Rfam assigns this 96-nucleotide RNA from Mytilus coruscus to the family "Small nucleolar RNA SNORD14". Rfam's curators write: U14 small nucleolar RNA (U14 snoRNA) is required for early cleavages of eukaryotic precursor rRNAs. In yeasts, this molecule possess a stem-loop region (known as the Y-domain) which is essential for function. A similar structure, but with a different consensus sequence, is found in plants, but is absent in vertebrates. Rfam links the family to the GO terms nucleolus and RNA processing. A reference for the family is Samarsky et al. (1996), "An essential domain in Saccharomyces cerevisiae U14 snoRNA is absent in vertebrates, but conserved in other yeasts", Nucleic Acids Res. It is annotated as a C/D-box small nucleolar RNA. The family's consensus secondary structure was predicted with PFOLD.
RNA sequence: UUGCGAUGAUGAAGACUUUCCAUUCAUUCGCGGUUUCCACCAGAGAGUUCUUGAACUCGAAGAUGGCUGUUCGACCUUCCUUGGAUGUCUGAGUAA
Numbered sequence: 001u002u003g004c005g006a007u008g009a010u011g012a013a014g015a016c017u018u019u020c021c022a023u024u025c026a027u028u029c030g031c032g033g034u035u036u037c038c039a040c041c042a043g044a045g046a047g048u049u050c051u052u053g054a055a056c057u058c059g060a061a062g063a064u065g066g067c068u069g070u071u072c073g074a075c076c077u078u079c080c081u082u083g084g085a086u087g088u089c090u091g092a093g094u095a096a
Stems, first nucleotide, its partner, number of pairs: 001096004045058005